[Rfam]
RNA: Small nucleolar RNA SNORA13
Organism: Galbula dea
RNA sequence: CGUCUUUGUGUUGCCUGUUCAUUCCUGUCCAGAAUGAAUGUGGUGUCAAGAAAGGCAAAUAGAAAUUCUUGCUCGAACUGUUUAAGGAGCUGGUUGUUUACCUUUGUGCUCCCUGUUUUUGCAAGGACAAAA
Numbered sequence: 001c002g003u004c005u006u007u008g009u010g011u012u013g014c015c016u017g018u019u020c021a022u023u024c025c026u027g028u029c030c031a032g033a034a035u036g037a038a039u040g041u042g043g044u045g046u047c048a049a050g051a052a053a054g055g056c057a058a059a060u061a062g063a064a065a066u067u068c069u070u071g072c073u074c075g076a077a078c079u080g081u082u083u084a085a086g087g088a089g090c091u092g093g094u095u096g097u098u099u100a101c102c103u104u105u106g107u108g109c110u111c112c113c114u115g116u117u118u119u120u121g122c123a124a125g126g127a128c129a130a131a132a
Base pairs, nucleotide, nucleotide: 002056003055004054005053006052007051009048010047012045013044014043015042016040017039018038019037020036021035022034023033068125069124070123071122074121075120076119077118085114086113087112088110089109092104093103